[Rfam]
This 72-nucleotide RNA sequence belongs to the Rfam family "L13-Bacteroidia ribosomal protein leader". Rfam classes the family as a cis-regulatory leader.

RNA sequence: AGAGAGUCAUUAGUUCUCUCAAAAGGGUGUGUAGAUAGCGUGAACUUUGGCCGGUUCUGUGGUCUGUGAAUC
Numbered sequence: 001a002g003a004g005a006g007u008c009a010u011u012a013g014u015u016c017u018c019u020c021a022a023a024a025g026g027g028u029g030u031g032u033a034g035a036u037a038g039c040g041u042g043a044a045c046u047u048u049g050g051c052c053g054g055u056u057c058u059g060u061g062g063u064c065u066g067u068g069a070a071u072c
Stems, first nucleotide, its partner, number of pairs: 001019006032066005038060003042057005